A member of the RNA family "c-di-GMP-I riboswitch aptamer" from Bacillus sp. 1NLA3E, 90 nucleotides long.

RNA sequence: AAUCCGAAAGGGCAAACCUGGGGAAAUUCAGGGACGCAAAGCUAUAGGGGCUAAGAUCGUAUUCAUUGAUGAUGCCAGCCAGUUGCCGAA
Numbered sequence: 001a002a003u004c005c006g007a008a009a010g011g012g013c014a015a016a017c018c019u020g021g022g023g024a025a026a027u028u029c030a031g032g033g034a035c036g037c038a039a040a041g042c043u044a045u046a047g048g049g050g051c052u053a054a055g056a057u058c059g060u061a062u063u064c065a066u067u068g069a070u071g072a073u074g075c076c077a078g079c080c081a082g083u084u085g086c087c088g089a090a
Stems, first nucleotide, its partner, number of pairs: 012037002017032006040084004047080002049076003056070004